[Rfam]
RNA sequence: CGGGAGAAGGGUUGUUAAGGAACUCGGCAAGUUGACCCCGUAACUUAGGGAUAAGGGGUGCUUGAGUGAUCAAGCCGCAGAGAAUAGGCCCAGGCGACUGUUUAGCAAAAACACAGGUCUCUGCUAAAUCGAAAGAUGACGUAUAGGGGCUGACACCUGCCCGGUGCCGGAAGGUUAAGAGGAGAUGUGAGAGCAUCGAAUUGAAGCCCCGGUAAACGGCGGCCGUAACUAUAACGGUCCUAAGGUAGCGAAAUUCCUUGUCAGGUAAGUUCUGACCCGCACGAAUGGUGUAACGAUCUGGGCACUGUCUCAACAACCCGCCCG
Number, nucleotide and partner (000 for none) at each position: 001c324002g323003g322004g321005a000006g000007a000008a000009g319010g318011g317012u316013u315014g314015u313016u312017a000018a310019g309020g308021a000022a000023c000024u000025c000026g000027g000028c000029a000030a000031g000032u000033u000034g000035a059036c058037c057038c056039c055040g000041u000042a000043a000044c049045u000046u000047a000048g000049g044050g000051a000052u000053a000054a000055g039056g038057g037058g036059u035060g075061c074062u073063u072064g071065a070066g000067u000068g000069a000070u065071c064072a063073a062074g061075c060076c080077g000078c000079a000080g076081a000082g000083a000084a000085u000086a000087g000088g303089c302090c301091c300092a299093g298094g297095c295096g294097a000098c000099u113100g112101u111102u000103u000104a000105g000106c000107a000108a000109a000110a000111a101112c100113a099114c000115a000116g151117g150118u149119c148120u147121c146122u145123g144124c141125u000126a000127a000128a137129u136130c135131g000132a000133a000134a000135g130136a129137u128138g000139a000140c000141g124142u000143a000144u123145a122146g121147g120148g119149g118150c117151u116152g000153a000154c290155a289156c288157c287158u000159g220160c219161c218162c000163g000164g217165u216166g213167c212168c211169g210170g209171a000172a000173g208174g207175u206176u000177a000178a000179g202180a201181g000182g000183a000184g197185a196186u195187g194188u193189g000190a000191g000192a000193g188194c187195a186196u185197c184198g000199a000200a000201u180202u179203g000204a000205a000206g175207c174208c173209c170210c169211g168212g167213u166214a000215a000216a165217c164218g161219g160220c159221g239222g238223c237224c236225g235226u234227a000228a000229c000230u000231a000232u000233a000234a226235c225236g224237g223238u222239c221240c244241u000242a000243a000244g240245g000246u000247a000248g000249c000250g277251a000252a000253a000254u000255u000256c000257c000258u000259u000260g276261u275262c274263a273264g272265g271266u000267a000268a000269g000270u000271u265272c264273u263274g262275a261276c260277c250278c000279g000280c000281a000282c000283g000284a000285a000286u000287g157288g156289u155290g154291u000292a000293a000294c096295g095296a000297u094298c093299u092300g091301g090302g089303c088304a000305c000306u000307g000308u020309c019310u018311c000312a016313a015314c014315a013316a012317c011318c010319c009320g000321c004322c003323c002324g001
A member of the RNA family "Bacterial large subunit ribosomal RNA" from Hominimerdicola alba, 324 nucleotides of a longer RNA.
Its family is annotated with structural constituent of ribosome and ribosome in the Gene Ontology.
The match comes from Rfam's covariance-model search (2767 bits).
The family's consensus secondary structure is taken from published work.